The family of this 82-nucleotide RNA from Pseudomonas sp. 21C1 is "Group II catalytic intron D1-D4-1". A search with the family's covariance model found it, with a score of 47 bits.
[Rfam]
RNA sequence: GCUUUGUGCCUGAAAGGGCGACGGCGCAAGUCGGAGCGAGAAGUCAGCAGAGGCCGUAGUAGUCUUUUUUUUGACGAAGGGC
Numbered sequence: 001g002c003u004u005u006g007u008g009c010c011u012g013a014a015a016g017g018g019c020g021a022c023g024g025c026g027c028a029a030g031u032c033g034g035a036g037c038g039a040g041a042a043g044u045c046a047g048c049a050g051a052g053g054c055c056g057u058a059g060u061a062g063u064c065u066u067u068u069u070u071u072u073g074a075c076g077a078a079g080g081g082c
Stems, first nucleotide, its partner, number of pairs: 001027002004023001007020005044051002053082003062075003
The base pairs follow the family's consensus structure. Taxonomically the source falls in Pseudomonas (Bacteria, Pseudomonadati, Pseudomonadota, Pseudomonadaceae). The literature on the family includes a 2001 paper in EMBO J by Chu et al., "Control of branch-site choice by a group II intron". Rfam describes the family as follows. Group II introns are found in rRNA, tRNA and mRNA of organelles in fungi, plants and protists, and also in mRNA in bacteria.